Rfam assigns this 114-nucleotide RNA from Branchiostoma lanceolatum to the family "Potassium channel RNA editing signal". It is annotated as a cis-regulatory element. The family's consensus secondary structure is taken from published work. A search with the family's covariance model found it, with a score of 67 bits. The literature on the family includes a 2004 paper in Nat Struct Mol Biol by Bhalla et al., "Control of human potassium channel inactivation by editing of a small mRNA hairpin".
[Rfam]
RNA sequence: GUUGGCUACGGGGAUAACACACCUGUCACGGUUGGCGGGAAAAUCGUAGGUGCAGUGUGCGCUGUGACGGGACUGUUAGUUAUCGCCCUACCCGUGCCAGUCAUCGUGUCGAAC
Numbered sequence: 001g002u003u004g005g006c007u008a009c010g011g012g013g014a015u016a017a018c019a020c021a022c023c024u025g026u027c028a029c030g031g032u033u034g035g036c037g038g039g040a041a042a043a044u045c046g047u048a049g050g051u052g053c054a055g056u057g058u059g060c061g062c063u064g065u066g067a068c069g070g071g072a073c074u075g076u077u078a079g080u081u082a083u084c085g086c087c088c089u090a091c092c093c094g095u096g097c098c099a100g101u102c103a104u105c106g107u108g109u110c111g112a113a114c
Base pairs, nucleotide, nucleotide: 001114002113005110007108008107009106010105011104013102014101015100021095022094037077038076040074049063050062051061